RNA sequence: AGUAUCGAGUAAUUGCGCGUUAUAUUUCUAACGUGAGGAAGGUCCAUGCUCGCACAGUCUGAGAUGACUGUAAGGUUUGUGCUGGGAUAAAAAAUAAACCCAGGGGCGGUAAUACGCUACGGCGGUCGAACAGGCUAAGGCUUUGCUAUGUCUUAAUAGAUCUGAAAGUGCCAUAGAAACGUACGCGUUAAUGAAAGUUAGCGUUUGAGACGAGGUAAACCCCGCAAGCGGGCAACCCAAACUUUUGGUAGGGGCGGCUAAUCUAGCGAAUUGAAGCGAUGAUUGGUAUGGUUUGGCAACAAACUUAGAUAGAUGAUUACUGAAGGUGGUAUGUACCUGCGUAUCACUGGAACAAAACAUGGCCUACAGAU
Numbered sequence: 001a002g003u004a005u006c007g008a009g010u011a012a013u014u015g016c017g018c019g020u021u022a023u024a025u026u027u028c029u030a031a032c033g034u035g036a037g038g039a040a041g042g043u044c045c046a047u048g049c050u051c052g053c054a055c056a057g058u059c060u061g062a063g064a065u066g067a068c069u070g071u072a073a074g075g076u077u078u079g080u081g082c083u084g085g086g087a088u089a090a091a092a093a094a095u096a097a098a099c100c101c102a103g104g105g106g107c108g109g110u111a112a113u114a115c116g117c118u119a120c121g122g123c124g125g126u127c128g129a130a131c132a133g134g135c136u137a138a139g140g141c142u143u144u145g146c147u148a149u150g151u152c153u154u155a156a157u158a159g160a161u162c163u164g165a166a167a168g169u170g171c172c173a174u175a176g177a178a179a180c181g182u183a184c185g186c187g188u189u190a191a192u193g194a195a196a197g198u199u200a201g202c203g204u205u206u207g208a209g210a211c212g213a214g215g216u217a218a219a220c221c222c223c224g225c226a227a228g229c230g231g232g233c234a235a236c237c238c239a240a241a242c243u244u245u246u247g248g249u250a251g252g253g254g255c256g257g258c259u260a261a262u263c264u265a266g267c268g269a270a271u272u273g274a275a276g277c278g279a280u281g282a283u284u285g286g287u288a289u290g291g292u293u294u295g296g297c298a299a300c301a302a303a304c305u306u307a308g309a310u311a312g313a314u315g316a317u318u319a320c321u322g323a324a325g326g327u328g329g330u331a332u333g334u335a336c337c338u339g340c341g342u343a344u345c346a347c348u349g350g351a352a353c354a355a356a357a358c359a360u361g362g363c364c365u366a367c368a369g370a371u
Stems, first nucleotide, its partner, number of pairs: 004371003007367001008321007016035006040365003044362005049232005054071006077227005082103005104120001105118004121222002124162004132153004139147003168220002170216003185204008236253003257287007288306001290304001292302002325348009